[Rfam]
RNA sequence: UAAAUCUUUAAUGCAGUCCCGUGAGGCUGGUAAGAUGAUAAUAAAUUACUGAAUUGUAAUUGAUUGUAAUUAUUAUAACUUCUUGCGGCCCACGUAAGAAGUUUUUUUAAU
Numbered sequence: 001u002a003a004a005u006c007u008u009u010a011a012u013g014c015a016g017u018c019c020c021g022u023g024a025g026g027c028u029g030g031u032a033a034g035a036u037g038a039u040a041a042u043a044a045a046u047u048a049c050u051g052a053a054u055u056g057u058a059a060u061u062g063a064u065u066g067u068a069a070u071u072a073u074u075a076u077a078a079c080u081u082c083u084u085g086c087g088g089c090c091c092a093c094g095u096a097a098g099a100a101g102u103u104u105u106u107u108u109a110a111u
Stems, first nucleotide, its partner, number of pairs: 004036005014029005044071006051064001054063003075105001077103011
A member of the RNA family "PyrR binding site" from Alkaliphilus oremlandii, 111 nucleotides long. It is annotated as a cis-regulatory element. For this family Rfam cites "Molecular recognition of pyr mRNA by the Bacillus subtilis attenuation regulatory protein PyrR" (Bonner et al., Nucleic Acids Res, 2001). NCBI's taxonomy places the organism under Bacteria, Bacillota, Clostridia, Alkaliphilus, Alkaliphilus oremlandii. Rfam's curators write: This family represents the PyrR binding site and terminator structure. This RNA structure is found upstream of a variety of genes involved in pyrimidine biosynthesis and transport. The alignment also includes a portion of the antiterminator structure. The family's consensus secondary structure is taken from published work.